[Rfam]
About this RNA
Shown here is a 123-nucleotide sequence from Halomonas sp. THAF5a, a member of the family "TPP riboswitch aptamer (THI element)". The match comes from Rfam's covariance-model search (74 bits). The organism belongs to Halomonas, within Bacteria.

RNA sequence: GACAACUUGUCGGGGAGCCCCGGUACGCUCGAGGUGAGGUACACGGGGGCUGAGAUCGGUACGGCCGAACCCGUUGAACCUGAUCAGGUUGAUGCCUGCGGAGGGAACAAGCUGUCGUCUCGC
Numbered sequence: 001g002a003c004a005a006c007u008u009g010u011c012g013g014g015g016a017g018c019c020c021c022g023g024u025a026c027g028c029u030c031g032a033g034g035u036g037a038g039g040u041a042c043a044c045g046g047g048g049g050c051u052g053a054g055a056u057c058g059g060u061a062c063g064g065c066c067g068a069a070c071c072c073g074u075u076g077a078a079c080c081u082g083a084u085c086a087g088g089u090u091g092a093u094g095c096c097u098g099c100g101g102a103g104g105g106a107a108c109a110a111g112c113u114g115u116c117g118u119c120u121c122g123c
Stems, first nucleotide, its partner, number of pairs: 006111005011073004017050005057067004079104003085098004